Background
Bacterial large subunit ribosomal RNA: a 340-nucleotide part of an RNA from Alteraurantiacibacter aestuarii. The organism belongs to Alteraurantiacibacter, within Bacteria. The match comes from Rfam's covariance-model search (2683 bits). Pairs were carried over by alignment from the consensus structure, which is taken from published work.
[Rfam]
RNA sequence: UGAGUGAAGUAUCCUGAAGGAACUCGGCAAAUUGCCUCCGUACCUUCGGAAGAAGGAGGCCCAACCUUUGCGCAAGCAAUUGUUGGGGGCACAGGCCAGGGGGUAGCGACUGUUUAUCAAAAACACAGGACUCUGCUAAGUCGGCUUCAAGACGACGUAUAGGGUCUGACGCCUGCCCGGUGCUGGAAGGUUAAGAGGAGGAGUGCAAGCUCCGAAUUGAAGCCCCAGUAAACGGCGGCCGUAACUAUAACGGUCCUAAGGUAGCGAAAUUCCUUGUCGGGUAAGUUCCGACCUGCACGAAUGGCGUAACGACUUCCCCACUGUCUCCAGGAUAUGCUCA
Numbered sequence: 001u002g003a004g005u006g007a008a009g010u011a012u013c014c015u016g017a018a019g020g021a022a023c024u025c026g027g028c029a030a031a032u033u034g035c036c037u038c039c040g041u042a043c044c045u046u047c048g049g050a051a052g053a054a055g056g057a058g059g060c061c062c063a064a065c066c067u068u069u070g071c072g073c074a075a076g077c078a079a080u081u082g083u084u085g086g087g088g089g090c091a092c093a094g095g096c097c098a099g100g101g102g103g104u105a106g107c108g109a110c111u112g113u114u115u116a117u118c119a120a121a122a123a124c125a126c127a128g129g130a131c132u133c134u135g136c137u138a139a140g141u142c143g144g145c146u147u148c149a150a151g152a153c154g155a156c157g158u159a160u161a162g163g164g165u166c167u168g169a170c171g172c173c174u175g176c177c178c179g180g181u182g183c184u185g186g187a188a189g190g191u192u193a194a195g196a197g198g199a200g201g202a203g204u205g206c207a208a209g210c211u212c213c214g215a216a217u218u219g220a221a222g223c224c225c226c227a228g229u230a231a232a233c234g235g236c237g238g239c240c241g242u243a244a245c246u247a248u249a250a251c252g253g254u255c256c257u258a259a260g261g262u263a264g265c266g267a268a269a270u271u272c273c274u275u276g277u278c279g280g281g282u283a284a285g286u287u288c289c290g291a292c293c294u295g296c297a298c299g300a301a302u303g304g305c306g307u308a309a310c311g312a313c314u315u316c317c318c319c320a321c322u323g324u325c326u327c328c329a330g331g332a333u334a335u336g337c338u339c340a
Stems, first nucleotide, its partner, number of pairs: 001340004009335008018326003035059005044049001060087006068079004088092001100319004105314002107311002111125003128167008136157001140153003170306004175236003180233002182229005189224003195218002200213005237255006256260001266293001276292006